[Rfam]
RNA sequence: UCUACACAAGUAUGCCUACUUGAUCACCAGGAUGAUUCAGAGCUUGUGUAGAACAACUAAAUAAUGUCAGCGGUCUUACUGAAUGAGGCAGCUGCAAGUAACAAAAUGAAGGAAUUCUUCAUUUUUAGCUUGUAGUGGCUUUGCUAUGCCUCGUUUUAGCUGAAUU
Dot-bracket structure: (((((.(((((.(.(((...........)))...[[[[[[)))))).)))))...............((((.(.....]]]]]]......(((((.........(((((((.....)))))))........)))))....................).))))....